[Rfam]
Shown here is a 391-nucleotide RNA from Monosporascus sp. CRB-9-2, a member of the family "Nuclear RNase P". Ribonuclease P (RNase P) is a ubiquitous endoribonuclease, found in archaea, bacteria and eukarya as well as chloroplasts and mitochondria.

RNA sequence: GCCCUUUUCAAAGCUGCGAUUCCGAGCUACAAACAGAGAGACUGCGGAUUCCGCAGUCUCUCGGUCUCGUCCUCCUCUGGAGUUCAGAACUUUCAUCAGCUCGUGAGAAAUUCGGAGGACUCUUCAUCUUUCCCGCCUUCGCCUUGUCAGGAUCCCUGACUUGGCUGGCCUGCCCGUGAGGGCCUGGCUUGACUUCAAGCUUGCAACAGUGGCAUAAGAAACGCAGGGCCUGUAACCUCAUGUAUAUCCGCGAGGAGAAGAUGGGAUUGGCAGUGUCCCUAUGAGAGAGCCGUUGCGAAGAUUGUGUUUGAAUCACUUAAGUCCGAUUCGCAGCUUGGGAUGCCUCGUCCGCGAGCACCCAAUAUUCGAUUCCGAUUAUUCUGUUAAGGGC
Number, nucleotide and partner (000 for none) at each position: 001g391002c390003c389004c388005u000006u000007u000008u000009c383010a382011a000012a000013g334014c333015u332016g331017c330018g329019a328020u000021u000022c000023c103024g102025a101026g100027c000028u000029a000030c000031a000032a000033a000034c000035a000036g094037a093038g092039a091040g090041a000042c000043u000044g000045c000046g000047g000048a000049u000050u000051c000052c000053g000054c000055a000056g000057u000058c000059u000060c000061u000062c000063g000064g000065u000066c000067u000068c000069g000070u000071c000072c000073u000074c000075c000076u000077c000078u000079g000080g000081a000082g000083u000084u000085c000086a000087g000088a000089a000090c040091u039092u038093u037094c036095a000096u000097c000098a000099g000100c026101u025102c024103g023104u000105g000106a000107g000108a000109a000110a000111u000112u000113c374114g373115g372116a371117g370118g000119a000120c000121u000122c300123u299124u298125c297126a000127u000128c000129u000130u000131u000132c000133c000134c000135g000136c000137c000138u000139u000140c000141g000142c000143c000144u000145u000146g000147u000148c000149a000150g000151g000152a000153u000154c000155c000156c000157u000158g000159a000160c000161u000162u000163g000164g000165c000166u000167g000168g000169c000170c000171u000172g183173c182174c181175c180176g000177u000178g000179a000180g175181g174182g173183c172184c000185u000186g201187g200188c199189u198190u197191g000192a000193c000194u000195u000196c000197a190198a189199g188200c187201u186202u000203g000204c000205a000206a000207c295208a294209g293210u292211g291212g290213c289214a000215u000216a000217a000218g000219a000220a000221a000222c000223g000224c000225a000226g280227g279228g278229c000230c000231u000232g000233u000234a000235a000236c000237c000238u000239c000240a000241u000242g000243u000244a000245u000246a000247u000248c000249c000250g000251c000252g000253a000254g000255g000256a000257g000258a000259a000260g000261a000262u000263g000264g000265g000266a000267u000268u000269g000270g000271c000272a000273g000274u000275g000276u000277c000278c228279c227280u226281a000282u000283g000284a000285g000286a000287g000288a000289g213290c212291c211292g210293u209294u208295g207296c000297g125298a124299a123300g122301a000302u000303u000304g000305u000306g000307u000308u000309u000310g000311a000312a000313u000314c000315a000316c000317u000318u000319a000320a000321g000322u000323c000324c000325g000326a000327u000328u019329c018330g017331c016332a015333g014334c013335u362336u361337g360338g359339g358340a000341u000342g000343c000344c000345u000346c000347g000348u000349c000350c000351g000352c000353g000354a000355g000356c000357a000358c339359c338360c337361a336362a335363u000364a000365u000366u000367c000368g000369a000370u117371u116372c115373c114374g113375a000376u000377u000378a000379u000380u000381c000382u010383g009384u000385u000386a000387a000388g004389g003390g002391c001